RNA sequence: CUUCACGGAGCCGAGCCACAGCGGCCGGUCGGCCGGACGGUCCUGCCCAUAGGUGGCCAGCAGCGCCUGGGCCUC
Numbered sequence: 001c002u003u004c005a006c007g008g009a010g011c012c013g014a015g016c017c018a019c020a021g022c023g024g025c026c027g028g029u030c031g032g033c034c035g036g037a038c039g040g041u042c043c044u045g046c047c048c049a050u051a052g053g054u055g056g057c058c059a060g061c062a063g064c065g066c067c068u069g070g071g072c073c074u075c
Base pairs, nucleotide, nucleotide: 015025016024017023033071038065039064043060044059045058047056048055049054
Shown here is a 75-nucleotide sequence from Streptomyces avermitilis, a member of the family "ASpks TB sRNA". The organism belongs to Streptomyces, within Bacteria. Rfam's curators put it in the seed alignment. By type it is an antisense RNA. The family's consensus secondary structure is taken from published work.